[Rfam]
RNA sequence: GACAUCAUAUUAAAAGCGUUUUCAUUUAUAUACGCUCGGAUGGAGGGGUUCUUGAUGGAAGCCAUCAUCUGUCAAACCUGUGAUGAAGUGAUUACCUAUGUAGAGUCGGAAAAAGCGGGAACUCUUUACGGCAAAUGCGUGGGUUGUGAUGAGCACAAAGAAGAAAGCAAUAAUUAAAAAAACAGAAGCCACUGGAAAUCCCGGUGGCUUUUUCUUGA
Numbered sequence: 001g002a003c004a005u006c007a008u009a010u011u012a013a014a015a016g017c018g019u020u021u022u023c024a025u026u027u028a029u030a031u032a033c034g035c036u037c038g039g040a041u042g043g044a045g046g047g048g049u050u051c052u053u054g055a056u057g058g059a060a061g062c063c064a065u066c067a068u069c070u071g072u073c074a075a076a077c078c079u080g081u082g083a084u085g086a087a088g089u090g091a092u093u094a095c096c097u098a099u100g101u102a103g104a105g106u107c108g109g110a111a112a113a114a115g116c117g118g119g120a121a122c123u124c125u126u127u128a129c130g131g132c133a134a135a136u137g138c139g140u141g142g143g144u145u146g147u148g149a150u151g152a153g154c155a156c157a158a159a160g161a162a163g164a165a166a167g168c169a170a171u172a173a174u175u176a177a178a179a180a181a182a183c184a185g186a187a188g189c190c191a192c193u194g195g196a197a198a199u200c201c202c203g204g205u206g207g208c209u210u211u212u213u214c215u216u217g218a
Stems, first nucleotide, its partner, number of pairs: 016116002019114004025108001029104001031102004040097001042095001056091001058089001062085001068083002143154002180216002184212009
SR1 sRNA: a 218-nucleotide RNA from Paenactinomyces guangxiensis. A search with the family's covariance model found it, with a score of 54 bits. A reference for the family is Heidrich et al. (2007), "In vitro analysis of the interaction between the small RNA SR1 and its primary target ahrC mRNA", Nucleic Acids Res. The source organism's lineage runs through Bacteria, Bacillati, Bacilli, Thermoactinomycetaceae and Paenactinomyces. Rfam links the family to the GO terms translation repressor activity, mRNA regulatory element binding and negative regulation of translational initiation. The base pairs follow the family's consensus structure, which is taken from published work.